A member of the RNA family "Actinobacteria sRNA Ms_IGR-5" from Longispora fulva, 205 nucleotides long.

[Rfam]
RNA sequence: AGACGUUGAGAGGAGGUGGUCCAGAGUUGAGUAAGAAUCGGACACAUGAGGUGGCUGUUUCUUAGCCGCGGUCCUUCUGGACUCUCGAUGGUCGCUGGCCGGACGCGGUGCGGCGACAGAGACAGCCAUCUGAUCCCCGGGGUGCCGGAGCUUGUCCUCCCGGCCCGUGCCGCAAGGCGCGGAAGCACCCCGGGGAUCACCCUUU
Numbered sequence: 001a002g003a004c005g006u007u008g009a010g011a012g013g014a015g016g017u018g019g020u021c022c023a024g025a026g027u028u029g030a031g032u033a034a035g036a037a038u039c040g041g042a043c044a045c046a047u048g049a050g051g052u053g054g055c056u057g058u059u060u061c062u063u064a065g066c067c068g069c070g071g072u073c074c075u076u077c078u079g080g081a082c083u084c085u086c087g088a089u090g091g092u093c094g095c096u097g098g099c100c101g102g103a104c105g106c107g108g109u110g111c112g113g114c115g116a117c118a119g120a121g122a123c124a125g126c127c128a129u130c131u132g133a134u135c136c137c138c139g140g141g142g143u144g145c146c147g148g149a150g151c152u153u154g155u156c157c158u159c160c161c162g163g164c165c166c167g168u169g170c171c172g173c174a175a176g177g178c179g180c181g182g183a184a185g186c187a188c189c190c191c192g193g194g195g196a197u198c199a200c201c202c203u204u205u
Stems, first nucleotide, its partner, number of pairs: 015059006060116002063113001065111002068106003073102002131199013145163004150158001